[Rfam]
RNA: Bacterial small signal recognition particle RNA
Organism: Pseudofulvimonas gallinarii
RNA sequence: UCCGUCGGCCCCCGCGGCGAUAGAUGGUGAACUCGGCCAGGUCCGGAAGGAAGCAACCGUAAUCAUCGAUUCGGGCGACGGGAUCCGUCGGCGGAGGC
Numbered sequence: 001u002c003c004g005u006c007g008g009c010c011c012c013c014g015c016g017g018c019g020a021u022a023g024a025u026g027g028u029g030a031a032c033u034c035g036g037c038c039a040g041g042u043c044c045g046g047a048a049g050g051a052a053g054c055a056a057c058c059g060u061a062a063u064c065a066u067c068g069a070u071u072c073g074g075g076c077g078a079c080g081g082g083a084u085c086c087g088u089c090g091g092c093g094g095a096g097g098c
Base pairs, nucleotide, nucleotide: 004092005091006090007089008088011082012081013080014079015075018073019072020071023067024066025065026064027063028062034059035058036057042051043050044049